RNA sequence: UGCGGGCUGCCCGGUGCGUCAGGCAAGACAUCCCCUGGGCCAGUAAGCAACUCCCUCGGGAGCUGGCUCUGCCGGAACCCUGGUUUCGGUACCCGGCGCCCACCUGCACACGCAGGCUCUGGGAGGAUGCAAAUGCCAACGGCCAGGGCGGCUUCGCA
Numbered sequence: 001u002g003c004g005g006g007c008u009g010c011c012c013g014g015u016g017c018g019u020c021a022g023g024c025a026a027g028a029c030a031u032c033c034c035c036u037g038g039g040c041c042a043g044u045a046a047g048c049a050a051c052u053c054c055c056u057c058g059g060g061a062g063c064u065g066g067c068u069c070u071g072c073c074g075g076a077a078c079c080c081u082g083g084u085u086u087c088g089g090u091a092c093c094c095g096g097c098g099c100c101c102a103c104c105u106g107c108a109c110a111c112g113c114a115g116g117c118u119c120u121g122g123g124a125g126g127a128u129g130c131a132a133a134u135g136c137c138a139a140c141g142g143c144c145a146g147g148g149c150g151g152c153u154u155c156g157c158a
Base pairs, nucleotide, nucleotide: 004154005153006152007151008150009149010148011147013144014143015142017141018140019139031127032126033125034123036121037120038119039117040116041115058101059100060099062097063096064095065094066093071090072089073088074087075086076085077084078083